RNA sequence: CUGUGAAAUUAGGCAAUUAUUUUUCAGGACUUACCUGAAAUGAAGAGAAUACUCAUUGCUGAUCACAU
Numbered sequence: 001c002u003g004u005g006a007a008a009u010u011a012g013g014c015a016a017u018u019a020u021u022u023u024u025c026a027g028g029a030c031u032u033a034c035c036u037g038a039a040a041u042g043a044a045g046a047g048a049a050u051a052c053u054c055a056u057u058g059c060u061g062a063u064c065a066c067a068u
Base pairs, nucleotide, nucleotide: 002067003066004065005064006063
Dot-bracket structure: .(((((........................................................))))).
Shown here is a 68-nucleotide sequence from Camelus dromedarius, a member of the family "Small nucleolar RNA SNORD2". The family's RNA type in Rfam is C/D-box small nucleolar RNA. Lineage of the source: Eukaryota > Vertebrata > Teleostomi > Mammalia > Camelus.